[Rfam]
RNA: UnaL2 LINE 3' element
Organism: Albula goreensis
RNA sequence: UGUAAGUUGUGUUGUAAGUUGCUCUGGAUAAGAGCAUCUGCCAAAUGCCUGUAA
Numbered sequence: 001u002g003u004a005a006g007u008u009g010u011g012u013u014g015u016a017a018g019u020u021g022c023u024c025u026g027g028a029u030a031a032g033a034g035c036a037u038c039u040g041c042c043a044a045a046u047g048c049c050u051g052u053a054a
Base pairs, nucleotide, nucleotide: 013043014041015040016039020036021035022034023033024032025031